[Rfam]
RNA sequence: CUUAACAAAGGCAAACUUAUUGAAAAAUAAGGACGCAAAGCUAUGGGUCUAAGGAUAAAUCUAUGACUGCCAAGCCGCUAAGU
Numbered sequence: 001c002u003u004a005a006c007a008a009a010g011g012c013a014a015a016c017u018u019a020u021u022g023a024a025a026a027a028u029a030a031g032g033a034c035g036c037a038a039a040g041c042u043a044u045g046g047g048u049c050u051a052a053g054g055a056u057a058a059a060u061c062u063a064u065g066a067c068u069g070c071c072a073a074g075c076c077g078c079u080a081a082g083u
Base pairs, nucleotide, nucleotide: 003080004079011036012035016031017030018029019028020027021026034069040075041074042073044072045071046070047067048066049065